[Rfam]
RNA sequence: CCAGACCUACGGUUCGGGCAACUACCCGGCAAUGUCCGAACCGUCGAGGGGUCCCAGCGCAAGCUGGGGCCCCUUUCUUU
Numbered sequence: 001c002c003a004g005a006c007c008u009a010c011g012g013u014u015c016g017g018g019c020a021a022c023u024a025c026c027c028g029g030c031a032a033u034g035u036c037c038g039a040a041c042c043g044u045c046g047a048g049g050g051g052u053c054c055c056a057g058c059g060c061a062a063g064c065u066g067g068g069g070c071c072c073c074u075u076u077c078u079u080u
Stems, first nucleotide, its partner, number of pairs: 010043009048073008057064002

The family of this 80-nucleotide RNA from Rhodopseudomonas palustris is "Bradyrhizobiaceae sRNA BjrC68". The base pairs follow the family's consensus structure. NCBI's taxonomy places the organism under Bacteria, Pseudomonadati, Alphaproteobacteria, Rhodopseudomonas, Rhodopseudomonas palustris. Rfam's curators put it in the seed alignment.